[Rfam]
RNA: MIR473 microRNA precursor family
Organism: Rhamnella rubrinervis
RNA sequence: UUUGUUCACUCUCCCUAACGGCUUCGAGCAAUCACUAAUGUCUUGGCAUUGUUAGCUGGAAGCCCUUGAGGGAGAGUGAGCAACAG
Dot-bracket structure: .....(((((((((((((.((((((.................................)))))).))).)))))))))).......
Numbered sequence: 001u002u003u004g005u006u007c008a009c010u011c012u013c014c015c016u017a018a019c020g021g022c023u024u025c026g027a028g029c030a031a032u033c034a035c036u037a038a039u040g041u042c043u044u045g046g047c048a049u050u051g052u053u054a055g056c057u058g059g060a061a062g063c064c065c066u067u068g069a070g071g072g073a074g075a076g077u078g079a080g081c082a083a084c085a086g
Stems, first nucleotide, its partner, number of pairs: 006079010016068003020064006